[Rfam]
RNA sequence: GGGGCGGAAUUCAUUUAUUGAUACUGCACCCACAAAUACUGUUAAAUUUAUUUAGUUUGGUCCACCUGGAUCAUUGGACCGGGAUGGGAGG
Numbered sequence: 001g002g003g004g005c006g007g008a009a010u011u012c013a014u015u016u017a018u019u020g021a022u023a024c025u026g027c028a029c030c031c032a033c034a035a036a037u038a039c040u041g042u043u044a045a046a047u048u049u050a051u052u053u054a055g056u057u058u059g060g061u062c063c064a065c066c067u068g069g070a071u072c073a074u075u076g077g078a079c080c081g082g083g084a085u086g087g088g089a090g091g
Stems, first nucleotide, its partner, number of pairs: 001031003004027004010021002062087003065083005071078002